[Rfam]
RNA sequence: AAUAUGGGGAUCGCGGUCUCCCCACGAGGCGACAGGCUCAAGAAUCGCGUCCUACUUUCAACAAGGACGCAUCAUG
Numbered sequence: 001a002a003u004a005u006g007g008g009g010a011u012c013g014c015g016g017u018c019u020c021c022c023c024a025c026g027a028g029g030c031g032a033c034a035g036g037c038u039c040a041a042g043a044a045u046c047g048c049g050u051c052c053u054a055c056u057u058u059c060a061a062c063a064a065g066g067a068c069g070c071a072u073c074a075u076g
Stems, first nucleotide, its partner, number of pairs: 005024006047070006
The family of this 76-nucleotide sequence from Sphingomonas koreensis is "chrB-a RNA". Taxonomically the source falls in Sphingomonas (Bacteria, Pseudomonadota, Sphingomonadales, Sphingomonadaceae). The match comes from Rfam's covariance-model search (77 bits). It is annotated as a cis-regulatory element.